[Rfam]
RNA sequence: AAAAUCCAAUCCAGGCAAAGCUUAACCAGCAGCUUGAAAUAAAUCACUAUACUGCGCAAGGUAACGAGCGUAGUAAAGCUAAUGGAAUGGACAACGAAAGCGAAGAUAUUGGGUCCUAAAAUUCUCGAUAAAAUAGAGAUUGACACUUUUUAUAUAGUGAAAGAAAGCAAGAAUGGUAAUAAUAAGGCAAGUUAUCACUCACUCUAUCGGGAUCUGAGGCCG
Numbered sequence: 001a002a003a004a005u006c007c008a009a010u011c012c013a014g015g016c017a018a019a020g021c022u023u024a025a026c027c028a029g030c031a032g033c034u035u036g037a038a039a040u041a042a043a044u045c046a047c048u049a050u051a052c053u054g055c056g057c058a059a060g061g062u063a064a065c066g067a068g069c070g071u072a073g074u075a076a077a078g079c080u081a082a083u084g085g086a087a088u089g090g091a092c093a094a095c096g097a098a099a100g101c102g103a104a105g106a107u108a109u110u111g112g113g114u115c116c117u118a119a120a121a122u123u124c125u126c127g128a129u130a131a132a133a134u135a136g137a138g139a140u141u142g143a144c145a146c147u148u149u150u151u152a153u154a155u156a157g158u159g160a161a162a163g164a165a166a167g168c169a170a171g172a173a174u175g176g177u178a179a180u181a182a183u184a185a186g187g188c189a190a191g192u193u194a195u196c197a198c199u200c201a202c203u204c205u206a207u208c209g210g211g212a213u214c215u216g217a218g219g220c221c222g
Stems, first nucleotide, its partner, number of pairs: 012036005020030003023190001026187001039088002044085003050075008060065001110216001111214001113213005133207006140164002144159004171200002174197007